[Rfam]
RNA sequence: CAGUGGGUGAAAGCCCCACCCGGCGAAAUGCUCCAGCCGGAAGUAAUCGGAGCAGUCAUGGAGGUAACGAAGUGGCUGAAGCCUUCGAUAUAGCGGGCCACAAAUUCUGGUGGCAGCACGAGUGUGCAGGCCGUAACGUGA
Number, nucleotide and partner (000 for none) at each position: 001c000002a000003g000004u000005g000006g000007g000008u000009g000010a000011a000012a000013g000014c000015c000016c000017c000018a000019c000020c040021c039022g038023g037024c036025g000026a000027a000028a000029u000030g000031c000032u000033c000034c000035a000036g024037c023038c022039g021040g020041a000042a000043g000044u000045a000046a000047u000048c087049g086050g085051a084052g083053c078054a077055g076056u075057c074058a073059u000060g000061g000062a000063g068064g000065u000066a000067a000068c063069g000070a000071a000072g000073u058074g057075g056076c055077u054078g053079a000080a000081g000082c000083c052084u051085u050086c049087g048088a000089u000090a000091u000092a000093g000094c000095g000096g000097g114098c113099c112100a111101c110102a000103a000104a000105u000106u000107c000108u000109g000110g101111u100112g099113g098114c097115a000116g000117c000118a134119c133120g132121a000122g000123u000124g000125u000126g000127c000128a000129g000130g000131c000132c120133g119134u118135a000136a000137c000138g000139u000140g000141a000
Shown here is a 141-nucleotide RNA sequence from Candidatus Accumulibacter regalis, a member of the family "Group II catalytic intron D1-D4-4".
Group II introns are found in rRNA, tRNA and mRNA of organelles in fungi, plants and protists, and also in mRNA in bacteria.
Lineage of the source: Bacteria > Pseudomonadati > Pseudomonadota > Betaproteobacteria > Candidatus Accumulibacter.
On this family, see Lehmann and Schmidt, Crit Rev Biochem Mol Biol 2003: "Group II introns: structure and catalytic versatility of large natural ribozymes".
Gene Ontology term of the family: Group II intron splicing.
Pairs were carried over by alignment from the consensus structure.